rmf RNA: a 132-nucleotide RNA sequence from Pseudomonas guineae. The match comes from Rfam's covariance-model search (112 bits). Rfam classes the family as a cis-regulatory element. The base pairs follow the family's consensus structure, which is taken from published work.
[Rfam]
RNA sequence: UUGGUUAGAAAUCACCUCAGGCCAACACUGCAAUGGUGAUGGCAAGGAGGCUCGCAACGCCGGCAGCGGACUCCGUAGGCAGUCUAUUUCUGCCUGACCUUGCGACAAGGUCUAAGGGACAUAACAGUCAAC
Numbered sequence: 001u002u003g004g005u006u007a008g009a010a011a012u013c014a015c016c017u018c019a020g021g022c023c024a025a026c027a028c029u030g031c032a033a034u035g036g037u038g039a040u041g042g043c044a045a046g047g048a049g050g051c052u053c054g055c056a057a058c059g060c061c062g063g064c065a066g067c068g069g070a071c072u073c074c075g076u077a078g079g080c081a082g083u084c085u086a087u088u089u090c091u092g093c094c095u096g097a098c099c100u101u102g103c104g105a106c107a108a109g110g111u112c113u114a115a116g117g118g119a120c121a122u123a124a125c126a127g128u129c130a131a132c
Stems, first nucleotide, its partner, number of pairs: 021043004026038004049072002052069004078094005096112006